This 92-nucleotide RNA sequence from Prunus dulcis belongs to the Rfam family "MIR6288 microRNA precursor family". The family's consensus secondary structure was predicted with RNAalifold. Its family is annotated with RISC complex and miRNA-mediated post-transcriptional gene silencing in the Gene Ontology. The source organism's lineage runs through Eukaryota, Viridiplantae, eudicotyledons, fabids and Prunus. Rfam 15.1 lists 293 matches to the family in 9 species.
RNA sequence: CUAAAAUUAGCCAUUUGUCCUUUUUUAAUUGGUUCUUAGUGUGUUAAAAUUUUCUAAGAAUCAAUUAAAAAAUGACAAGUAGCUAAUUUUGC
Numbered sequence: 001c002u003a004a005a006a007u008u009a010g011c012c013a014u015u016u017g018u019c020c021u022u023u024u025u026u027a028a029u030u031g032g033u034u035c036u037u038a039g040u041g042u043g044u045u046a047a048a049a050u051u052u053u054c055u056a057a058g059a060a061u062c063a064a065u066u067a068a069a070a071a072a073u074g075a076c077a078a079g080u081a082g083c084u085a086a087u088u089u090u091g092c
Stems, first nucleotide, its partner, number of pairs: 002091010013080007021072019